A member of the RNA family "c-di-AMP riboswitch aptamer (ydaO/yuaA leader)" from Dermacoccus nishinomiyaensis, 186 nucleotides long. Taxonomically the source falls in Dermacoccus (Bacteria, Bacillati, Actinomycetota, Dermacoccaceae).
RNA sequence: CCUGCUUCGUCGCUGAGUCCCGUCACGAAGGCCAGGUAUCACCGCAUUGCGCGGAGCGACGGGAGCGGUGCACCCAGCAUCCGAGCCACCCUGGUGGCUCUUGGGGUGAAGCCGGCUCAGGCCGGCCGAGAAUCUAGGAUCUCGAACCCGACAGGUCAUGCCUCGUAAGCGCUCCUGGAGAGAUCC
Numbered sequence: 001c002c003u004g005c006u007u008c009g010u011c012g013c014u015g016a017g018u019c020c021c022g023u024c025a026c027g028a029a030g031g032c033c034a035g036g037u038a039u040c041a042c043c044g045c046a047u048u049g050c051g052c053g054g055a056g057c058g059a060c061g062g063g064a065g066c067g068g069u070g071c072a073c074c075c076a077g078c079a080u081c082c083g084a085g086c087c088a089c090c091c092u093g094g095u096g097g098c099u100c101u102u103g104g105g106g107u108g109a110a111g112c113c114g115g116c117u118c119a120g121g122c123c124g125g126c127c128g129a130g131a132a133u134c135u136a137g138g139a140u141c142u143c144g145a146a147c148c149c150g151a152c153a154g155g156u157c158a159u160g161c162c163u164c165g166u167a168a169g170c171g172c173u174c175c176u177g178g179a180g181a182g183a184u185c186c
Base pairs, nucleotide, nucleotide: 011171012170013169014168018064019063020062021061022060023059024058065166066165067164068163070161075103076102104149105148106147112125113124114123115122128143129142130141131140
Rfam's curators write: This family represents a conserved RNA structure found upstream of the ydaO and yuaA genes in Bacillus subtilis and related genes in other bacteria. The ydaO/yuaA element is thought to act as a genetic 'off' switch for the ydaO and yuaA genes in its native state. It is believed that the element may be triggered during osmotic shock leading to activation of ydaO, a predicted amino acid transporter gene, and members of the yuaA-yubG operon which code for KtrA and KtrB K+ transporters.